[Rfam]
RNA sequence: UGUUAAAAAUUUCAUCCACUUUUAUGGUUAAAAAUUGGUCCUUGUACCUUACCGAGGUACACGUGGUAUGCCAUGUGUUGUUGUUUACUUAUUCCAUUUUCUACUUCAGUUUUUAAUAGUAUAAGUGGAUGAAAUUUUUAACA
Numbered sequence: 001u002g003u004u005a006a007a008a009a010u011u012u013c014a015u016c017c018a019c020u021u022u023u024a025u026g027g028u029u030a031a032a033a034a035u036u037g038g039u040c041c042u043u044g045u046a047c048c049u050u051a052c053c054g055a056g057g058u059a060c061a062c063g064u065g066g067u068a069u070g071c072c073a074u075g076u077g078u079u080g081u082u083g084u085u086u087a088c089u090u091a092u093u094c095c096a097u098u099u100u101c102u103a104c105u106u107c108a109g110u111u112u113u114u115a116a117u118a119g120u121a122u123a124a125g126u127g128g129a130u131g132a133a134a135u136u137u138u139u140a141a142c143a
Stems, first nucleotide, its partner, number of pairs: 002142015018126004023121003028116010
Dot-bracket structure: .(((((((((((((((.((((.(((..((((((((((.....................................................................))))))))))..))).)))).))))))))))))))).
The record is a 143-nucleotide RNA sequence from Gossypium aridum, which matches "MIR7502 microRNA precursor family" in Rfam.
Taxonomically the source falls in Gossypium (Eukaryota, Embryophyta, eudicotyledons, rosids).
Rfam 15.1 lists 74,505 matches to the family in 24 species.
The match comes from Rfam's covariance-model search (83 bits).
Its family is annotated with miRNA-mediated post-transcriptional gene silencing and RISC complex in the Gene Ontology.